[Rfam]
RNA sequence: AUGAUACUAGCGGGAGAGAUCUGGGAUAUCCAGACGCCGAAGGAGAAAAUCCCUGAAUCGCUUUCAGGGGGGAAACUCUCAGGCAAAGAGUACUGCUAGUAGACG
Number, nucleotide and partner (000 for none) at each position: 001a000002u000003g000004a000005u000006a100007c099008u098009a097010g096011c095012g094013g093014g000015a000016g000017a000018g000019a000020u034021c033022u032023g031024g000025g000026a000027u000028a000029u000030c000031c023032a022033g021034a020035c000036g084037c083038c082039g080040a079041a000042g000043g078044a077045g076046a000047a000048a000049a000050u000051c070052c069053c068054u067055g000056a000057a000058u000059c000060g000061c000062u000063u000064u000065c000066a000067g054068g053069g052070g051071g000072g000073a000074a000075a000076c045077u044078c043079u040080c039081a000082g038083g037084c036085a000086a000087a000088g000089a000090g000091u000092a000093c013094u012095g011096c010097u009098a008099g007100u006101a000102g000103a000104c000105g000
Rfam assigns this 105-nucleotide sequence from Desulfosporosinus fructosivorans to the family "Glycine riboswitch aptamer".
This family represents the bacterial glycine riboswitch.